A member of the RNA family "SAM (S-adenosyl methionine) riboswitch aptamer" from Arthrobacter sp. SW1, 114 nucleotides long.
NCBI's taxonomy places the organism under Bacteria, Bacillati, Actinomycetota, Micrococcales, Arthrobacter.
It scores 82 bits against the family's covariance model.
Pairs were carried over by alignment from the consensus structure, which is taken from published work.
[Rfam]
Nucleotides: 114
Stems, first nucleotide, its partner, number of pairs: 001078004009038001011037006021030002039065003044061003048056002081103003086098004
Number, partner (000 for none) and nucleotide at each position: 001078a002077g003076u004075a005000a006000u007000g008000a009038g010000c011037a012036c013035c014034a015033g016032c017000g018000c019000g020000a021030a022029g023000c024000c025000c026000u027000g028000a029022c030021u031000u032016g033015c034014u035013g036012g037011u038009c039065g040064g041063c042000a043000a044061c045060c046059c047000u048056c049055u050000c051000u052000c053000c054000c055049g056048g057000c058000g059046g060045g061044g062000u063041g064040c065039c066000u067000c068000a069000g070000g071000u072000g073000a074000c075004u076003a077002c078001u079000c080000g081103g082102c083101g084000u085000a086098u087097c088096g089095a090000c091000a092000c093000a094000u095089u096088c097087g098086a099000a100000c101083u102082g103081c104000a105000a106000g107000c108000g109000u110000g111000a112000c113000u114000g